[Rfam]
Shown here is a 92-nucleotide sequence from Manduca sexta, a member of the family "mir-2788 microRNA precursor family".
RNA sequence: AAAGUAUGUCGCCGUAGAGCUGGGGUUUCAAAGCGGCAUGUGCCUCCAGUCAUGCAAUGCCCUUGGAAAUCCCAAACGUGCUGGCGACCGCU
Numbered sequence: 001a002a003a004g005u006a007u008g009u010c011g012c013c014g015u016a017g018a019g020c021u022g023g024g025g026u027u028u029c030a031a032a033g034c035g036g037c038a039u040g041u042g043c044c045u046c047c048a049g050u051c052a053u054g055c056a057a058u059g060c061c062c063u064u065g066g067a068a069a070u071c072c073c074a075a076a077c078g079u080g081c082u083g084g085c086g087a088c089c090g091c092u
Stems, first nucleotide, its partner, number of pairs: 008088006014081003021074009031064003035061005041056003
Gene Ontology terms of the family: miRNA-mediated post-transcriptional gene silencing and RISC complex. It is one of the family's seed sequences.